Shown here is a 133-nucleotide sequence from Deinobacterium chartae, a member of the family "FMN riboswitch aptamer (RFN element)".
[Rfam]
RNA sequence: AGGUUCCUUCGGGGUGGGGUGGAAUUCCCUACCGGCGGUACAGCCCGCGAAGCCCGGGUAAACAGCAGUCCCUGGGCCCGAUCCGGUGAAACUCCGGAGCCGACGGUUACAGUCCGGAUGGGAGAAGGAGCGA
Dot-bracket structure: ..((((((((......(((.......))).[[((((((....[[))))...(((((((............)))))))....(((((.......)))))]])).(((.....]]))).......))))))))..